RNA sequence: AAAUCUUAAACUUAUGAGUAAGGAAAAUAACAAUUCGGAGUGAUGCCCAAAUCCUCACUGCUAAUGUGAGAUGAAUUUUUGAGCAGGUAAAGGUUGCCCCUAAGGUGACCCACCUACUUUGCUGGAUGCCUGGGAGUCGCAAUCUGCCUG
Numbered sequence: 001a002a003a004u005c006u007u008a009a010a011c012u013u014a015u016g017a018g019u020a021a022g023g024a025a026a027a028u029a030a031c032a033a034u035u036c037g038g039a040g041u042g043a044u045g046c047c048c049a050a051a052u053c054c055u056c057a058c059u060g061c062u063a064a065u066g067u068g069a070g071a072u073g074a075a076u077u078u079u080u081g082a083g084c085a086g087g088u089a090a091a092g093g094u095u096g097c098c099c100c101u102a103a104g105g106u107g108a109c110c111c112a113c114c115u116a117c118u119u120u121g122c123u124g125g126a127u128g129c130c131u132g133g134g135a136g137u138c139g140c141a142a143u144c145u146g147c148c149u150g
Stems, first nucleotide, its partner, number of pairs: 004023005033052003037048002054070005084150005091145007100134002103131005109125002113121001
Shown here is a 150-nucleotide sequence from Carlito syrichta, a member of the family "U12 minor spliceosomal RNA". A search with the family's covariance model found it, with a score of 114 bits. Clan: U2 clan. The organism belongs to Carlito, within Eukaryota. It is annotated as a spliceosomal small nuclear RNA.